[Rfam]
Nucleotides: 295
Stems, first nucleotide, its partner, number of pairs: 001295003005291005010285002012253006021034005039282003043279005048187004053217005060182004064074002067071001076087004090178002096172003112161002115156006132142002192233003200225005
Number, partner (000 for none) and nucleotide at each position: 001295g002294g003293u004000a005291g006290u007289c008288c009287c010285a011284g012253g013252a014251u015250g016249g017248c018000c019000g020000u021034c022033g023032c024031c025030a026000g027000a028000a029000a030025u031024g032023g033022u034021g035000a036000g037000g038000a039282a040281a041280g042000u043279c044278c045277u046276c047275c048187c049186u050185c051184c052000g053217g054216g055215u056214a057213g058000c059000a060182a061181u062180c063179u064074g065073g066000a067071u068000a069000a070000a071067a072000c073065c074064c075000u076087g077086g078085u079084c080000g081000a082000g083000a084079g085078a086077c087076c088000u089000g090178c091177u092000u093000c094000u095000c096172c097171u098170c099000a100000a101000a102000a103000g104000a105000a106000a107000u108000g109000a110000c111000a112161c113160a114000g115156u116155u117154u118153c119152g120151g121000u122000g123000a124000a125000g126000a127000g128000u129000g130000a131000a132142c133141c134000u135000u136000c137000u138000g139000a140000a141133g142132g143000g144000g145000a146000c147000g148000u149000u150000c151120c152119c153118g154117a155116a156115a157000a158000u159000g160113u161112g162000a163000u164000g165000a166000g167000a168000c169000a170098g171097a172096g173000g174000a175000g176000g177091a178090g179063g180062g181061a182060u183000c184051g185050g186049a187048g188000c189000a190000a191000a192233c193232u194231c195000a196000a197000g198000c199000g200225g201224u202223u203222c204221c205000u206000a207000u208000g209000a210000c211000a212000g213057c214056u215055a216054u217053c218000a219000g220000a221204g222203g223202a224201a225200c226000g227000g228000g229000u230000a231194g232193a233192g234000c235000g236000c237000a238000c239000u240000a241000g242000u243000c244000a245000a246000a247000u248017g249016c250015c251014a252013u253012c254000a255000a256000c257000c258000c259000g260000a261000a262000a263000g264000g265000g266000c267000u268000a269000a270000c271000a272000g273000a274000a275047g276046g277045a278044g279043g280041c281040u282039u283000a284011c285010u286000c287009g288008g289007g290006a291005c292000a293003a294002c295001c

The record is a 295-nucleotide sequence from Thermoplasmatales archaeon I-plasma, which matches "Archaeal RNase P" in Rfam.
For this family Rfam cites "Ribonuclease P: unity and diversity in a tRNA processing ribozyme" (Frank and Pace, Annu Rev Biochem, 1998).
Taxonomically the source falls in Thermoplasmatales (Archaea, Methanobacteriati, Thermoplasmatota, Thermoplasmata).
The base pairs follow the family's consensus structure, which is taken from published work.
Clan: RNaseP clan.